[Rfam]
Nucleotides: 079
Base pairs, nucleotide, nucleotide: 001079002078003077004076006074008072009071010070011069012068013067016064017063018062023056024055025053026052027051028050029049030048031047
Number, partner (000 for none) and nucleotide at each position: 001079u002078u003077g004076g005000u006074u007000u008072a009071a010070a011069u012068u013067a014000c015000a016064g017063u018062g019000g020000a021000u022000c023056u024055a025053c026052a027051c028050u029049u030048u031047g032000a033000a034000a035000a036000u037000a038000g039000a040000a041000c042000u043000c044000a045000u046000a047031c048030a049029a050028a051027g052026u053025g054000g055024u056023g057000c058000g059000a060000c061000a062018u063017a064016c065000a066000u067013u068012a069011a070010u071009u072008u073000u074006a075000u076004u077003c078002a079001a
The record is a 79-nucleotide RNA from Medicago truncatula, which matches "MIR5269 microRNA precursor family" in Rfam.
It scores 69 bits against the family's covariance model.
Pairs were carried over by alignment from the consensus structure, which was predicted with RNAalifold.